[Rfam]
RNA sequence: ACAACCGCCCCUCUCCAUAAUCCGGGGCAACUCAAACAGGAGGUUCCGCACAUCGGCGGUGCGACAAUGUGGAGACGUGUCGUAAAGUCUGAGGGUUCGACCCCCUCAAGGCAAGGUAAAUGAGCAGAGGCGAAUUUAUCACGAUGGGUAGAUAUGGCA
Numbered sequence: 001a002c003a004a005c006c007g008c009c010c011c012u013c014u015c016c017a018u019a020a021u022c023c024g025g026g027g028c029a030a031c032u033c034a035a036a037c038a039g040g041a042g043g044u045u046c047c048g049c050a051c052a053u054c055g056g057c058g059g060u061g062c063g064a065c066a067a068u069g070u071g072g073a074g075a076c077g078u079g080u081c082g083u084a085a086a087g088u089c090u091g092a093g094g095g096u097u098c099g100a101c102c103c104c105c106u107c108a109a110g111g112c113a114a115g116g117u118a119a120a121u122g123a124g125c126a127g128a129g130g131c132g133a134a135u136u137u138a139u140c141a142c143g144a145u146g147g148g149u150a151g152a153u154a155u156g157g158c159a
Stems, first nucleotide, its partner, number of pairs: 007028005046059004051146005060084007069076002087112004093106003115140007124131002

This 159-nucleotide sequence from Mageeibacillus indolicus belongs to the Rfam family "malK-I RNA". Lineage of the source: Bacteria > Bacillota > Oscillospiraceae > Mageeibacillus > Mageeibacillus indolicus. A search with the family's covariance model found it, with a score of 87 bits. The family's RNA type in Rfam is cis-regulatory element.